[Rfam]
RNA sequence: UUCUUAUCCAGAGAAGUGGAGGGAUCUGGCCCUGUGAAGCUUCAGCAACCUCUGACAUGGUCAGAAAGGUGCUAAAUCCAGCGAGUUUCAUCUCGGGAGAUAAGAG
Number, nucleotide and partner (000 for none) at each position: 001u106002u105003c104004u103005u102006a101007u100008c099009c000010a000011g000012a000013g043014a042015a041016g040017u039018g000019g000020a000021g032022g031023g030024a000025u000026c081027u080028g079029g078030c023031c022032c021033u000034g000035u000036g000037a000038a000039g017040c016041u015042u014043c013044a073045g072046c071047a070048a000049c069050c068051u065052c064053u063054g062055a000056c000057a000058u000059g000060g000061u000062c054063a053064g052065a051066a000067a000068g050069g049070u047071g046072c045073u044074a000075a000076a000077u098078c029079c028080a027081g026082c095083g094084a093085g092086u000087u000088u000089c000090a000091u000092c085093u084094c083095g082096g000097g000098a077099g008100a007101u006102a005103a004104g003105a002106g001

Rfam assigns this 106-nucleotide RNA from Virgibacillus sp. MSP4-1 to the family "SAM riboswitch aptamer (S box leader)". Its family is annotated with regulation of gene expression in the Gene Ontology. Lineage of the source: Bacteria > Bacillota > Bacilli > Bacillaceae > Virgibacillus.